[Rfam]
RNA sequence: AAACAAUCCCCUAUGUAUUGGAUCUUUGACAGUUUUAGCUCCCAAGACCACUUUUGAUUUAGUCUUUGUUGACGUGGCACCCACAAUGGUCGAAACGUGAUACCUCGCUUAAGGGAUGUGGGUGCCACGUCAGCGAAGAUUAAGUCAAAAGUGGUUUUGGAGGCCAAAACUGCCAAAGAUCCAAUACAUAGGAGGCUGUUU
Numbered sequence: 001a002a003a004c005a006a007u008c009c010c011c012u013a014u015g016u017a018u019u020g021g022a023u024c025u026u027u028g029a030c031a032g033u034u035u036u037a038g039c040u041c042c043c044a045a046g047a048c049c050a051c052u053u054u055u056g057a058u059u060u061a062g063u064c065u066u067u068g069u070u071g072a073c074g075u076g077g078c079a080c081c082c083a084c085a086a087u088g089g090u091c092g093a094a095a096c097g098u099g100a101u102a103c104c105u106c107g108c109u110u111a112a113g114g115g116a117u118g119u120g121g122g123u124g125c126c127a128c129g130u131c132a133g134c135g136a137a138g139a140u141u142a143a144g145u146c147a148a149a150a151g152u153g154g155u156u157u158u159g160g161a162g163g164c165c166a167a168a169a170c171u172g173c174c175a176a177a178g179a180u181c182c183a184a185u186a187c188a189u190a191g192g193a194g195g196c197u198g199u200u201u
Stems, first nucleotide, its partner, number of pairs: 001201002004198002007195002012190017030172007038164003042160004072130002075127008

The record is a 201-nucleotide sequence from Medicago truncatula, which matches "MIR2619 microRNA precursor family" in Rfam.
The base pairs follow the family's consensus structure, which was predicted with RNAalifold.
Gene Ontology terms of the family: miRNA-mediated post-transcriptional gene silencing and RISC complex.
Taxonomically the source falls in Medicago (Eukaryota, Spermatophyta, eudicotyledons, Fabaceae).
The sequence is in the family's curated seed alignment.